[Rfam]
RNA: SAM (S-adenosyl methionine) riboswitch aptamer
RNA sequence: GGUCACGAGUGACAGCGAUCAAGGCCCCGGCCCGCUGUCCGGCAACCCUCCGUCCGUGGCGGGGUGCCCCGGGUGAUGACCAGGUCGCAGGACAGCAAGGUCCCGCGGCAAGCGCGGAUC
Numbered sequence: 001g002g003u004c005a006c007g008a009g010u011g012a013c014a015g016c017g018a019u020c021a022a023g024g025c026c027c028c029g030g031c032c033c034g035c036u037g038u039c040c041g042g043c044a045a046c047c048c049u050c051c052g053u054c055c056g057u058g059g060c061g062g063g064g065u066g067c068c069c070c071g072g073g074u075g076a077u078g079a080c081c082a083g084g085u086c087g088c089a090g091g092a093c094a095g096c097a098a099g100g101u102c103c104c105g106c107g108g109c110a111a112g113c114g115c116g117g118a119u120c
Stems, first nucleotide, its partner, number of pairs: 001081004009040001011039006023032002041068003046064003050059002084109005090103004